Overview: The family of this 119-nucleotide RNA sequence from Thermosyntropha lipolytica is "Molybdenum/Tungsten riboswitch aptamer (Moco RNA motif)". It scores 78 bits against the family's covariance model. The family's consensus secondary structure is taken from published work. The source organism's lineage runs through Bacteria, Bacillota, Eubacteriales, Syntrophomonadaceae and Thermosyntropha lipolytica.

[Rfam]
RNA sequence: CUGUCAAAGCUCGCCGAGUUUAUAAUCCUAAGGUUAAAGGCUAGGGAUUAUAAACCGAUGGGUAUGGCUGGAAACGGCUGUGCCUCCCGUGUUUGGAAAGGAGAGCUCUUAAUUUGGGU
Numbered sequence: 001c002u003g004u005c006a007a008a009g010c011u012c013g014c015c016g017a018g019u020u021u022a023u024a025a026u027c028c029u030a031a032g033g034u035u036a037a038a039g040g041c042u043a044g045g046g047a048u049u050a051u052a053a054a055c056c057g058a059u060g061g062g063u064a065u066g067g068c069u070g071g072a073a074a075c076g077g078c079u080g081u082g083c084c085u086c087c088c089g090u091g092u093u094u095g096g097a098a099a100g101g102a103g104a105g106c107u108c109u110u111a112a113u114u115u116g117g118g119u
Base pairs, nucleotide, nucleotide: 010105011104012103014101015100018055019054020053021052022051023050024049025048026047027046028045032042033041034040035039060085061084062083063082064081065080066079067078068077069076070075086096087095